[Rfam]
RNA sequence: GGUUUCCGUUGGUGUAAAUCUAAUCACCUGAGUUUAAGAUGAUAAGAAAUUCAAUCAUUGGUAAUAAAUGGUUAUCCAUUAACCGGAGGAAAUCUUAU
Dot-bracket structure: ........((((.......))))............................(..((((.((((((.....)))))).)).....)).)..........
Numbered sequence: 001g002g003u004u005u006c007c008g009u010u011g012g013u014g015u016a017a018a019u020c021u022a023a024u025c026a027c028c029u030g031a032g033u034u035u036a037a038g039a040u041g042a043u044a045a046g047a048a049a050u051u052c053a054a055u056c057a058u059u060g061g062u063a064a065u066a067a068a069u070g071g072u073u074a075u076c077c078a079u080u081a082a083c084c085g086g087a088g089g090a091a092a093u094c095u096u097a098u
Stems, first nucleotide, its partner, number of pairs: 009023004052088001055086002057079002060076006
A member of the RNA family "Plastid-rps12 3UTR RNA" from Nicotiana sylvestris, 98 nucleotides long. Lineage of the source: Eukaryota > Streptophytina > Magnoliopsida > lamiids > Nicotiana. A search with the family's covariance model found it, with a score of 93 bits. Rfam describes the family as follows. Plastid rpl20 is a non-coding RNA (ncRNA) recognised in plastids. It was found in the three prime untranslated region (3UTR) of rps12 gene, its 3UTR location sugest a role in transcript maduration. Rfam classes the family as a cis-regulatory element.